[Rfam]
RNA sequence: UAACCGAACAUGCGAAUGUUCGCUGAACUAUCAGAAGUCAGCCGAAGCUGUAGUAUUGAAUAGCUCUAGACUAUUCAAGAAGGGC
Number, nucleotide and partner (000 for none) at each position: 001u025002a024003a000004c000005c022006g021007a020008a019009c018010a017011u016012g000013c000014g000015a000016a011017u010018g009019u008020u007021c006022g005023c000024u002025g001026a000027a000028c000029u000030a000031u000032c000033a000034g000035a000036a000037g000038u045039c044040a000041g000042c000043c000044g039045a038046a000047g085048c084049u083050g000051u000052a000053g000054u000055a000056u078057u077058g076059a075060a074061u073062a000063g000064c000065u000066c000067u000068a000069g000070a000071c000072u000073a061074u060075u059076c058077a057078a056079g000080a000081a000082g000083g049084g048085c047
A member of the RNA family "Group II catalytic intron D1-D4-1" from Virgibacillus oceani, 85 nucleotides long.